This 101-nucleotide RNA from Jejuibacter calystegiae belongs to the Rfam family "TPP riboswitch aptamer (THI element)". The source organism's lineage runs through Bacteria, Pseudomonadati, Pseudomonadota, Gammaproteobacteria and Jejuibacter. It scores 74 bits against the family's covariance model.
RNA sequence: UCAAAUGACUCGGGGUGCUCCGCCGACUGGAUGCGGGGCUGAGAAAGACCCGUUGACCUGAUCCGGAUAGUGCCGGCGUAGGGAAGUCAGAUGCCCGUACC
Numbered sequence: 001u002c003a004a005a006u007g008a009c010u011c012g013g014g015g016u017g018c019u020c021c022g023c024c025g026a027c028u029g030g031a032u033g034c035g036g037g038g039c040u041g042a043g044a045a046a047g048a049c050c051c052g053u054u055g056a057c058c059u060g061a062u063c064c065g066g067a068u069a070g071u072g073c074c075g076g077c078g079u080a081g082g083g084a085a086g087u088c089a090g091a092u093g094c095c096c097g098u099a100c101c
Base pairs, nucleotide, nucleotide: 006089007088008087009086010085011052012051013050014049016046017039018038019037020036021035022034023033057082058081059080060079063076064075065074066073